RNA sequence: CUCCACAGGUACUGGUCUGGAACUGUUCACAACUGUAGCAGUUGCAGUAUUCCCUCUGUGGAAGAUAAACUGUUGCACAGCAUUAGGCUCCUUCUCAGAACCUCUGAAAAGGACAUCCUAUGUAACAAACAAAU
Numbered sequence: 001c002u003c004c005a006c007a008g009g010u011a012c013u014g015g016u017c018u019g020g021a022a023c024u025g026u027u028c029a030c031a032a033c034u035g036u037a038g039c040a041g042u043u044g045c046a047g048u049a050u051u052c053c054c055u056c057u058g059u060g061g062a063a064g065a066u067a068a069a070c071u072g073u074u075g076c077a078c079a080g081c082a083u084u085a086g087g088c089u090c091c092u093u094c095u096c097a098g099a100a101c102c103u104c105u106g107a108a109a110a111g112g113a114c115a116u117c118c119u120a121u122g123u124a125a126c127a128a129a130c131a132a133a134u
Stems, first nucleotide, its partner, number of pairs: 003061004017047003021043005075123003079119001089113005095107002

A member of the RNA family "Small nucleolar RNA SNORA41" from Buceros rhinoceros, 134 nucleotides long. On this family, see Huttenhofer et al., EMBO J 2001: "RNomics: an experimental approach that identifies 201 candidates for novel, small, non-messenger RNAs in mouse". Rfam classes the family as an H/ACA-box small nucleolar RNA. From the family's description: ACA41 is a member of the H/ACA class of snoRNA that guide the sites of modification of uridines to pseudouridines. A search with the family's covariance model found it, with a score of 92 bits. NCBI's taxonomy places the organism under Eukaryota, Metazoa, Deuterostomia, Bucerotiformes, Buceros rhinoceros. The family has 31 seed sequences and 676 matches in Rfam 15.1.